[Rfam]
RNA: Bacterial RNase P class A
RNA sequence: UCAGCAUACCAGACAGUCGCUGUGUACUAUUGAGUGCAUGGAGGAAAGUCCGGGCUCCGCAGAGCAGAAUGCCGGCUAACAGCCGGGCGCCGUGAGGCGACGGAAAGUGGAACAGAAAGCAUAACCGCCGAUGGCUAUGUUUCAUAGCACAGGUAAGGGUGAAAUGGUGCGGUAAGAGCGCACCGUGCCGUUGGUAACAACGUGUAGCAGGCCAAACCCCAUUCGGAGCAAGACCAAACAGAAUGCGCUGACGCUGCUCGCCGAGCAUUCGGGUAGGUUGCUUGAGCGGCACAGUAAUGUGUCGCCCAGAUGAAUGACUGUCCACGACAGAACCCGGCUUAUCGGUUGUCUGAUGUG
Numbered sequence: 001u002c003a004g005c006a007u008a009c010c011a012g013a014c015a016g017u018c019g020c021u022g023u024g025u026a027c028u029a030u031u032g033a034g035u036g037c038a039u040g041g042a043g044g045a046a047a048g049u050c051c052g053g054g055c056u057c058c059g060c061a062g063a064g065c066a067g068a069a070u071g072c073c074g075g076c077u078a079a080c081a082g083c084c085g086g087g088c089g090c091c092g093u094g095a096g097g098c099g100a101c102g103g104a105a106a107g108u109g110g111a112a113c114a115g116a117a118a119g120c121a122u123a124a125c126c127g128c129c130g131a132u133g134g135c136u137a138u139g140u141u142u143c144a145u146a147g148c149a150c151a152g153g154u155a156a157g158g159g160u161g162a163a164a165u166g167g168u169g170c171g172g173u174a175a176g177a178g179c180g181c182a183c184c185g186u187g188c189c190g191u192u193g194g195u196a197a198c199a200a201c202g203u204g205u206a207g208c209a210g211g212c213c214a215a216a217c218c219c220c221a222u223u224c225g226g227a228g229c230a231a232g233a234c235c236a237a238a239c240a241g242a243a244u245g246c247g248c249u250g251a252c253g254c255u256g257c258u259c260g261c262c263g264a265g266c267a268u269u270c271g272g273g274u275a276g277g278u279u280g281c282u283u284g285a286g287c288g289g290c291a292c293a294g295u296a297a298u299g300u301g302u303c304g305c306c307c308a309g310a311u312g313a314a315u316g317a318c319u320g321u322c323c324a325c326g327a328c329a330g331a332a333c334c335c336g337g338c339u340u341a342u343c344g345g346u347u348g349u350c351u352g353a354u355g356u357g
Stems, first nucleotide, its partner, number of pairs: 001353004008346003011342001012322007020041009046340003050337005055228004062259004067224005072086005087101001088099004102219002107217002109213002125158002127154003166184006185208001186206003189202005232279004241270006253261002286305008